[Rfam]
Nucleotides: 129
Base pairs, nucleotide, nucleotide: 003060004059005058006057007056016043017042018041019040020039070122071121072120073119082109083108084107085106087104090101091100092099
Number, partner (000 for none) and nucleotide at each position: 001000g002000a003060g004059c005058c006057a007056g008000c009000c010000a011000a012000c013000g014000a015000a016043u017042c018041u019040g020039c021000u022000u023000a024000c025000c026000c027000g028000c029000a030000u031000g032000g033000g034000u035000u036000u037000c038000u039020g040019c041018a042017g043016a044000a045000u046000c047000u048000a049000g050000a051000g052000a053000a054000a055000g056007c057006u058005g059004g060003c061000a062000a063000u064000a065000g066000c067000c068000a069000a070122g071121c072120c073119a074000u075000g076000u077000u078000a079000c080000g081000a082109a083108c084107u085106u086000u087104a088000c089000a090101g091100a092099c093000a094000u095000u096000g097000a098000a099092g100091u101090c102000a103000c104087u105000u106085a107084g108083g109082u110000c111000c112000c113000u114000g115000a116000a117000a118000a119073u120072g121071g122070c123000u124000a125000u126000a127000a128000g129000g